[Rfam]
RNA: Eukaryotic large subunit ribosomal RNA, nucleotides 417 to 724
Organism: Prorocentrum micans
RNA sequence: CGAAUGGAACCAGUGUUGCUUGGCGAGAGUUGUCGUACGCACUUCGCGUGUGGUGGUUCUUGCCUUGUGUGUCAAGCAGCCUUCGCGAUCGAGGAAAACUCCAGGGACAUGGUAGCCUACCCCUGGGUGGGUGAAUGUGCUUGGUAGAACUCAUUUGCGGACUGUUUCCUUCGUGUCUGGUUGCAGUGCUGCUUGAUCUUGUGCGCUGGGAUGGAGCUCGCUCCUACAACCUCCCUUCUAAGGUCUCAGCGCUUCCCUGACACAUAGCGAUGACUAAAUGGUUCUAUUCGACCCGUCUUGAAACACGG
Numbered sequence: 001c002g003a004a005u006g007g008a009a010c011c012a013g014u015g016u017u018g019c020u021u022g023g024c025g026a027g028a029g030u031u032g033u034c035g036u037a038c039g040c041a042c043u044u045c046g047c048g049u050g051u052g053g054u055g056g057u058u059c060u061u062g063c064c065u066u067g068u069g070u071g072u073c074a075a076g077c078a079g080c081c082u083u084c085g086c087g088a089u090c091g092a093g094g095a096a097a098a099c100u101c102c103a104g105g106g107a108c109a110u111g112g113u114a115g116c117c118u119a120c121c122c123c124u125g126g127g128u129g130g131g132u133g134a135a136u137g138u139g140c141u142u143g144g145u146a147g148a149a150c151u152c153a154u155u156u157g158c159g160g161a162c163u164g165u166u167u168c169c170u171u172c173g174u175g176u177c178u179g180g181u182u183g184c185a186g187u188g189c190u191g192c193u194u195g196a197u198c199u200u201g202u203g204c205g206c207u208g209g210g211a212u213g214g215a216g217c218u219c220g221c222u223c224c225u226a227c228a229a230c231c232u233c234c235c236u237u238c239u240a241a242g243g244u245c246u247c248a249g250c251g252c253u254u255c256c257c258u259g260a261c262a263c264a265u266a267g268c269g270a271u272g273a274c275u276a277a278a279u280g281g282u283u284c285u286a287u288u289c290g291a292c293c294c295g296u297c298u299u300g301a302a303a304c305a306c307g308g
Base pairs, nucleotide, nucleotide: 001290002289003288004287005286006285007284008283009282010281011280012279018077019076020075021074022073023072024071081272083270084269085268086267293308294307295306296305